[Rfam]
RNA sequence: GCGCCGGUCAUUGGGGAGUAGCCUCCUUUAGGGUUUGCAUCAACAGACUUGACCCUCACGGUCAUGGUGCAAACAGUGAUUCGUCAUUAAAACGGAUACACCUGGCAAGACCUUUGACCAUACCCUGUGCGGCCGGACAGGUGUGUGGUCAAUGGAAGUUUUCCGGCCAUGGAGUAUCAA
Numbered sequence: 001g002c003g004c005c006g007g008u009c010a011u012u013g014g015g016g017a018g019u020a021g022c023c024u025c026c027u028u029u030a031g032g033g034u035u036u037g038c039a040u041c042a043a044c045a046g047a048c049u050u051g052a053c054c055c056u057c058a059c060g061g062u063c064a065u066g067g068u069g070c071a072a073a074c075a076g077u078g079a080u081u082c083g084u085c086a087u088u089a090a091a092a093c094g095g096a097u098a099c100a101c102c103u104g105g106c107a108a109g110a111c112c113u114u115u116g117a118c119c120a121u122a123c124c125c126u127g128u129g130c131g132g133c134c135g136g137a138c139a140g141g142u143g144u145g146u147g148g149u150c151a152a153u154g155g156a157a158g159u160u161u162u163c164c165g166g167c168c169a170u171g172g173a174g175u176a177u178c179a180a
Base pairs, nucleotide, nucleotide: 025032026031033074034073035072036071037070038069039068040067041066042065050064051063052062053061054060077179078178079177080176